[Rfam]
RNA sequence: GCCCGGGUGGCGAAAUGGUAGACGCAGGGGAUUCAAAAUCCCCCGUAGAAAUACGUGUCGGUUCGAGUCCGACCCCGGGCA
Numbered sequence: 001g002c003c004c005g006g007g008u009g010g011c012g013a014a015a016u017g018g019u020a021g022a023c024g025c026a027g028g029g030g031a032u033u034c035a036a037a038a039u040c041c042c043c044c045g046u047a048g049a050a051a052u053a054c055g056u057g058u059c060g061g062u063u064c065g066a067g068u069c070c071g072a073c074c075c076c077g078g079g080c081a
Stems, first nucleotide, its partner, number of pairs: 001080007010025003027043005057073005
Background: A member of the RNA family "tRNA" from Chitinilyticum piscinae, 81 nucleotides long. Lineage of the source: Bacteria > Pseudomonadati > Pseudomonadota > Chitinibacteraceae > Chitinilyticum. Its Rfam clan is "tRNA clan". The match comes from Rfam's covariance-model search (57 bits). It is annotated as a transfer RNA. From the family's description: Transfer RNA (tRNA) molecules are approximately 80 nucleotides in length.